RNA sequence: AAUGAAUGACAAAAUGUUUCAGGCCCAAAUGAUAUAUAAUGAUUAAACCGUUGCAUUUUUUCUGACAUU
Numbered sequence: 001a002a003u004g005a006a007u008g009a010c011a012a013a014a015u016g017u018u019u020c021a022g023g024c025c026c027a028a029a030u031g032a033u034a035u036a037u038a039a040u041g042a043u044u045a046a047a048c049c050g051u052u053g054c055a056u057u058u059u060u061u062c063u064g065a066c067a068u069u
Base pairs, nucleotide, nucleotide: 001069002068003067004066

This 69-nucleotide RNA from Sarcophilus harrisii belongs to the Rfam family "Small nucleolar RNA SNORD73". The family's RNA type in Rfam is C/D-box small nucleolar RNA. Rfam links the family to the GO terms nucleolus and RNA processing.